About this RNA:
The family of this 70-nucleotide RNA from Myiagra hebetior is "GAIT element". The family's consensus secondary structure is taken from published work. This family represents a cis-acting element in the 3'-UTR of the ceruloplasmin (Cp) gene called gamma interferon inhibitor of translation (GAIT). The GAIT element is involved in selective translational silencing of the Cp transcript. Ceruloplasmin (Cp) is a multifunctional, copper-containing glycoprotein produced by the liver and secreted into the plasma. As an acute-phase protein, its plasma concentration can double during multiple inflammatory conditions. Plasma Cp has been reported to be an independent risk factor for cardiovascular disease, including atherosclerosis, carotid restenosis after endarterectomy, and myocardial infarction. Translational silencing of Cp, and possibly other transcripts, mediated by the GAIT element may contribute to the resolution of the local inflammatory response following cytokine activation of macrophages. On this family, see Sampath et al., Mol Cell Biol 2003: "Transcript-selective translational silencing by gamma interferon is directed by a novel structural element in the ceruloplasmin mRNA 3' untranslated region".
[Rfam]
RNA sequence: GCAUUUGCCAGUCAAAACUAGAAAGCUACUCUUCAUUGAGUAUCAGCUUUUUGAAAAGUUGAAAGAAUGC
Numbered sequence: 001g002c003a004u005u006u007g008c009c010a011g012u013c014a015a016a017a018c019u020a021g022a023a024a025g026c027u028a029c030u031c032u033u034c035a036u037u038g039a040g041u042a043u044c045a046g047c048u049u050u051u052u053g054a055a056a057a058g059u060u061g062a063a064a065g066a067a068u069g070c
Stems, first nucleotide, its partner, number of pairs: 001070006010060003022050006032042001034040001